Selenocysteine transfer RNA: a 91-nucleotide RNA from Thioalkalivibrio denitrificans. The source organism's lineage runs through Bacteria, Pseudomonadati, Gammaproteobacteria, Chromatiales and Thioalkalivibrio. The base pairs follow the family's consensus structure, which is taken from published work.
RNA sequence: GGAGAGGAUGGUACCCGGUGGUAUUCACGGGCUUCAAACCCGAUGGGGGGCGGUGAAACCGUCCCUGGCAGGUUCGACUCCUGCCCUCUCC
Number, nucleotide and partner (000 for none) at each position: 001g091002g090003a089004g088005a087006g086007g085008a000009u000010g025011g024012u023013a022014c021015c020016c000017g000018g000019u000020g015021g014022u013023a012024u011025u010026c000027a000028c042029g041030g040031g039032c000033u000034u000035c000036a000037a000038a000039c031040c030041c029042g028043a000044u000045g000046g066047g065048g064049g063050g062051c000052g000053g000054u000055g000056a000057a000058a000059c000060c000061g000062u050063c049064c048065c047066u046067g000068g000069c083070a082071g081072g080073u000074u000075c000076g000077a000078c000079u000080c072081c071082u070083g069084c000085c007086c006087u005088c004089u003090c002091c001